[Rfam]
RNA sequence: CUUGUGAAAUGAUGAUUAGUUUACAGAAAGUAGAACAAGUUUUUUCGUGUGCUUUCUUUACAUUUUUGGAUGUAAAUCUGAUCAUAUG
Numbered sequence: 001c002u003u004g005u006g007a008a009a010u011g012a013u014g015a016u017u018a019g020u021u022u023a024c025a026g027a028a029a030g031u032a033g034a035a036c037a038a039g040u041u042u043u044u045u046c047g048u049g050u051g052c053u054u055u056c057u058u059u060a061c062a063u064u065u066u067u068g069g070a071u072g073u074a075a076a077u078c079u080g081a082u083c084a085u086a087u088g
Stems, first nucleotide, its partner, number of pairs: 001088001003086005
RNA: Small nucleolar RNA Z122